[Rfam]
RNA sequence: GGUCCAAUGCCACGUCGCCGGUAGCUAUAUGAAGCGGUGACCGGCGAUGCUAUGAUUGGACCGAGAUAAAAUUUACUGUUUCGCAUACUGAUAGGAAUCCUUGGAUCUCAUUCCAAUAAUCUAUGGAGCCGAUUUGUGCGAUUACAUUU
Numbered sequence: 001g002g003u004c005c006a007a008u009g010c011c012a013c014g015u016c017g018c019c020g021g022u023a024g025c026u027a028u029a030u031g032a033a034g035c036g037g038u039g040a041c042c043g044g045c046g047a048u049g050c051u052a053u054g055a056u057u058g059g060a061c062c063g064a065g066a067u068a069a070a071a072u073u074u075a076c077u078g079u080u081u082c083g084c085a086u087a088c089u090g091a092u093a094g095g096a097a098u099c100c101u102u103g104g105a106u107c108u109c110a111u112u113c114c115a116a117u118a119a120u121c122u123a124u125g126g127a128g129c130c131g132a133u134u135u136g137u138g139c140g141a142u143u144a145c146a147u148u149u
Base pairs, nucleotide, nucleotide: 002061003060004059005058006057007056008055009053013049014048015047016046017045018044020042021041022040024035025034026033081141082140083139084138085137094130095129099126100125103122104121105120106119
RNA: Small nucleolar RNA snoR2/U65
Organism: Senna tora